Shown here is a 165-nucleotide sequence from Halopiger xanaduensis, a member of the family "Sense overlapping transcript RNA 0042 (sot)". The match comes from Rfam's covariance-model search (89 bits). The family has 2 seed sequences and 196 matches in Rfam 15.1. Rfam's curators write: It is associated with IS1341-type transposase (tnpB) genes, at the 3'-end in H. salinarum NRC-1. The tetraloop structural motif may be functional. NCBI's taxonomy places the organism under Archaea, Methanobacteriati, Natrialbaceae, Halopiger, Halopiger xanaduensis. By type it is a small RNA.
[Rfam]
RNA sequence: CGGUAACUCCGAGUCCUGCGAAGGAGAGGAGUAACGGCUGGUUGGCGCAGCCAGCAGUCCGUCUGUUCGAUAAAUACACCGGCGUAGUAGCCGGCCGAGAACAGGUUGCUGACUGCAAACCAUAAUAUCCCAACGCCCGUGAAUCCUACGGCUUCAGCCGUAGGA
Numbered sequence: 001c002g003g004u005a006a007c008u009c010c011g012a013g014u015c016c017u018g019c020g021a022a023g024g025a026g027a028g029g030a031g032u033a034a035c036g037g038c039u040g041g042u043u044g045g046c047g048c049a050g051c052c053a054g055c056a057g058u059c060c061g062u063c064u065g066u067u068c069g070a071u072a073a074a075u076a077c078a079c080c081g082g083c084g085u086a087g088u089a090g091c092c093g094g095c096c097g098a099g100a101a102c103a104g105g106u107u108g109c110u111g112a113c114u115g116c117a118a119a120c121c122a123u124a125a126u127a128u129c130c131c132a133a134c135g136c137c138c139g140u141g142a143a144u145c146c147u148a149c150g151g152c153u154u155c156a157g158c159c160g161u162a163g164g165a
Stems, first nucleotide, its partner, number of pairs: 003035002007031004014025004036052005055115005060108001062105007079094005128142002131139001144165009